[Rfam]
RNA sequence: GCAAGAACGUGCCGUCUACACGUUUUUGCCGUCUUGAAGGUGCUUUCCGAUUUGGCACAGGGAAGCAAAGACGAAAGGA
Numbered sequence: 001g002c003a004a005g006a007a008c009g010u011g012c013c014g015u016c017u018a019c020a021c022g023u024u025u026u027u028g029c030c031g032u033c034u035u036g037a038a039g040g041u042g043c044u045u046u047c048c049g050a051u052u053u054g055g056c057a058c059a060g061g062g063a064a065g066c067a068a069a070g071a072c073g074a075a076a077g078g079a
Stems, first nucleotide, its partner, number of pairs: 001029011031072004035067001042066007
RNA: aspS RNA